Rfam assigns this 120-nucleotide RNA from Halopseudomonas xinjiangensis to the family "Ribosomal S15 leader".
Rfam links the family to the GO term regulation of translation, ncRNA-mediated.
The literature on the family includes a 1996 paper in Biochimie by Benard et al., "Pseudoknot and translational control in the expression of the S15 ribosomal protein".
The family's consensus secondary structure is taken from published work.
By type it is a cis-regulatory leader.
The source organism's lineage runs through Bacteria, Pseudomonadati, Pseudomonadota, Pseudomonadales and Halopseudomonas.
[Rfam]
RNA sequence: GGUCAUACCUCGAUUUAAAACACGGGAUUAAGUCCCGGCCUGUUACCUCAGAGGAAAGCUGUCAUGGCACUGAGCGUCGAAGAUAAAGCUGCAAUCGUAAACGAGUACAAGCGUGGGGAA
Numbered sequence: 001g002g003u004c005a006u007a008c009c010u011c012g013a014u015u016u017a018a019a020a021c022a023c024g025g026g027a028u029u030a031a032g033u034c035c036c037g038g039c040c041u042g043u044u045a046c047c048u049c050a051g052a053g054g055a056a057a058g059c060u061g062u063c064a065u066g067g068c069a070c071u072g073a074g075c076g077u078c079g080a081a082g083a084u085a086a087a088g089c090u091g092c093a094a095u096c097g098u099a100a101a102c103g104a105g106u107a108c109a110a111g112c113g114u115g116g117g118g119a120a
Stems, first nucleotide, its partner, number of pairs: 007028001009026004047074005053068001
About the family: The E. coli Ribosomal S15 gene 5' UTR can form two alternative structures. One that is a series of three hairpins, The other includes a pseudoknot.